[Rfam]
RNA sequence: AGUUGAAUUACAGGGUGAGUUCUCCAUUGGCAGGUAGCUAGCCACUAUAUGAUAUGCAUUGCAAUCAUCACUUAGUGUGUAAUCUGCCAAAGGAGAUUUGCCCAGCGAUUCUCAU
Numbered sequence: 001a002g003u004u005g006a007a008u009u010a011c012a013g014g015g016u017g018a019g020u021u022c023u024c025c026a027u028u029g030g031c032a033g034g035u036a037g038c039u040a041g042c043c044a045c046u047a048u049a050u051g052a053u054a055u056g057c058a059u060u061g062c063a064a065u066c067a068u069c070a071c072u073u074a075g076u077g078u079g080u081a082a083u084c085u086g087c088c089a090a091a092g093g094a095g096a097u098u099u100g101c102c103c104a105g106c107g108a109u110u111c112u113c114a115u
Base pairs, nucleotide, nucleotide: 005111006110007109008108009107011105013103014102015101016100017099018098019097022095023094024093025092028089029088030087031086032085033084034083035082
About this RNA:
The family of this 115-nucleotide RNA from Medicago truncatula is "mir-399 microRNA precursor family". Its family is annotated with RISC complex and miRNA-mediated post-transcriptional gene silencing in the Gene Ontology. On this family, see Jones-Rhoades and Bartel, Mol Cell 2004: "Computational Identification of Plant MicroRNAs and Their Targets, Including a Stress-Induced miRNA". From the family's description: mir-399 was identified in both Arabidopsis thaliana and Oryza sativa computationally and was later experimentally verified. mir-399 is thought to target mRNAs coding for a phosphatase transporter.